[Rfam]
RNA sequence: CGCUCAGGACGACCUGAGCGUGGCCUGGUAGUCGCGGGGACGACCCUG
Number, nucleotide and partner (000 for none) at each position: 001c020002g019003c018004u017005c016006a015007g014008g013009a000010c000011g000012a000013c008014c007015u006016g005017a004018g003019c002020g001021u000022g000023g000024c000025c000026u000027g000028g000029u000030a000031g000032u000033c000034g000035c048036g047037g046038g045039g044040a000041c000042g000043a000044c039045c038046c037047u036048g035
RNA: Guanidine-II riboswitch aptamer (mini-ykkC)
Organism: Oceanococcus atlanticus